The family of this 117-nucleotide RNA sequence is "Streptomyces-metK RNA". Rfam classes the family as a small RNA.

[Rfam]
RNA sequence: GCGAGACGGUGGCCCAUCGGUCGAGCGCGACCGAUAAACUGUUCUCGGACGGCGCCGGGCUGCAGCCCUCGCGUCGUCCGCAAAUGAUCAGCCAGCAGCCGCUGCAACCCCAGGGAG
Numbered sequence: 001g002c003g004a005g006a007c008g009g010u011g012g013c014c015c016a017u018c019g020g021u022c023g024a025g026c027g028c029g030a031c032c033g034a035u036a037a038a039c040u041g042u043u044c045u046c047g048g049a050c051g052g053c054g055c056c057g058g059g060c061u062g063c064a065g066c067c068c069u070c071g072c073g074u075c076g077u078c079c080g081c082a083a084a085u086g087a088u089c090a091g092c093c094a095g096c097a098g099c100c101g102c103u104g105c106a107a108c109c110c111c112a113g114g115g116a117g
Base pairs, nucleotide, nucleotide: 047079048078049077050076051075052074055073056071057070058069059068093104094103095102096101